[Rfam]
The family of this 76-nucleotide RNA sequence from Alligator mississippiensis is "Mammalian CPEB3 ribozyme". Pairs were carried over by alignment from the consensus structure, which is taken from published work.
RNA sequence: UCACAAGUUCAAGGCCAUAGAAGAAGUGAUCAUGGCGCGGCCCUGUCAGAUUUCAAUGCAAUCUGGAAAUUCUACU
Numbered sequence: 001u002c003a004c005a006a007g008u009u010c011a012a013g014g015c016c017a018u019a020g021a022a023g024a025a026g027u028g029a030u031c032a033u034g035g036c037g038c039g040g041c042c043c044u045g046u047c048a049g050a051u052u053u054c055a056a057u058g059c060a061a062u063c064u065g066g067a068a069a070u071u072c073u074a075c076u
Stems, first nucleotide, its partner, number of pairs: 013042004019076002022073004026038003047065006